[Rfam]
RNA sequence: GCCUCUCCGAAUUACAAAUGUCCUUAAUAGCAAUCCUUAAAUGCCAUUAAGGACAUUUGUGAUUCAUGGGGGGAGGU
Numbered sequence: 001g002c003c004u005c006u007c008c009g010a011a012u013u014a015c016a017a018a019u020g021u022c023c024u025u026a027a028u029a030g031c032a033a034u035c036c037u038u039a040a041a042u043g044c045c046a047u048u049a050a051g052g053a054c055a056u057u058u059g060u061g062a063u064u065c066a067u068g069g070g071g072g073g074a075g076g077u
Base pairs, nucleotide, nucleotide: 002072003071004070005069006068010064011063012062013061014060015059016058017057018056019055020054021053022052023051024050025049026048027047028046030044031043032042

A member of the RNA family "mir-4477 microRNA precursor family" from Papio anubis, 77 nucleotides long. Pairs were carried over by alignment from the consensus structure, which was predicted with RNAalifold. The match comes from Rfam's covariance-model search (76 bits).